[Rfam]
The family of this 88-nucleotide RNA sequence is "SAM-I/IV (S-adenosyl methionine) riboswitch aptamer". The sequence is in the family's curated seed alignment.
RNA sequence: AAAAAGCAUGGAGAGAGGUAAAGCCUCAGCAACCUAGAAAGCUAACUAAGGUGCUUUAAUAUGUGGUUUAAAACAAAAAAUAGCUUUU
Numbered sequence: 001a002a003a004a005a006g007c008a009u010g011g012a013g014a015g016a017g018g019u020a021a022a023g024c025c026u027c028a029g030c031a032a033c034c035u036a037g038a039a040a041g042c043u044a045a046c047u048a049a050g051g052u053g054c055u056u057u058a059a060u061a062u063g064u065g066g067u068u069u070a071a072a073a074c075a076a077a078a079a080a081u082a083g084c085u086u087u088u
Stems, first nucleotide, its partner, number of pairs: 006064005015027005028055003033051003036047002040086002043083001066074003